RNA: Selenocysteine transfer RNA
Organism: Dictyostelium discoideum
RNA sequence: GCGUGUUUGAUCGCUAUCUGGGGAUGCGUGUGGACUUCAAAUCCAUAGCUCGAUAACUCGAGAGUUGUUCGAUUCAACCUGACGCGC
Numbered sequence: 001g002c003g004u005g006u007u008u009g010a011u012c013g014c015u016a017u018c019u020g021g022g023g024a025u026g027c028g029u030g031u032g033g034a035c036u037u038c039a040a041a042u043c044c045a046u047a048g049c050u051c052g053a054u055a056a057c058u059c060g061a062g063a064g065u066u067g068u069u070c071g072a073u074u075c076a077a078c079c080u081g082a083c084g085c086g087c
Base pairs, nucleotide, nucleotide: 001087002086003085004084005083006082007081009079012028013027014026016025017024018023029047030046031045032044033043034042049062050061051060052059053058064078065077066076067075